Rfam assigns this 77-nucleotide RNA sequence from Xanthomonas oryzae to the family "Xanthomonas sRNA sX9". For this family Rfam cites "Genome-wide transcriptome analysis of the plant pathogen Xanthomonas identifies sRNAs with putative virulence functions" (Schmidtke et al., Nucleic Acids Res, 2011). The family's consensus secondary structure was predicted with RNAalifold.

RNA sequence: AUGGACAACGCGUCCACUGCGGUUGUGAGCGCGCCGUCCGCACCCACCUGACGACUGCUCGCUACGUUUUGUUCGCC
Numbered sequence: 001a002u003g004g005a006c007a008a009c010g011c012g013u014c015c016a017c018u019g020c021g022g023u024u025g026u027g028a029g030c031g032c033g034c035c036g037u038c039c040g041c042a043c044c045c046a047c048c049u050g051a052c053g054a055c056u057g058c059u060c061g062c063u064a065c066g067u068u069u070u071g072u073u074c075g076c077c
Stems, first nucleotide, its partner, number of pairs: 002016005020036004048075001050073005
Dot-bracket structure: .(((((.....)))))...((((.........))))...........(.(((((..............))))).)..